RNA sequence: AUCGUUCAUCUGAUUCUGGCUAACAGCAGAGCAAGACGGAAGUAGAGAGCUUAACCAACUUAUCCAAAAUAUUGGCACUCUCGAAGGAACGCGCC
Numbered sequence: 001a002u003c004g005u006u007c008a009u010c011u012g013a014u015u016c017u018g019g020c021u022a023a024c025a026g027c028a029g030a031g032c033a034a035g036a037c038g039g040a041a042g043u044a045g046a047g048a049g050c051u052u053a054a055c056c057a058a059c060u061u062a063u064c065c066a067a068a069a070u071a072u073u074g075g076c077a078c079u080c081u082c083g084a085a086g087g088a089a090c091g092c093g094c095c
Stems, first nucleotide, its partner, number of pairs: 003091005009036003039092001045082005
RNA: Glutamine riboswitch aptamer (glnA leader)
Organism: Phormidesmis priestleyi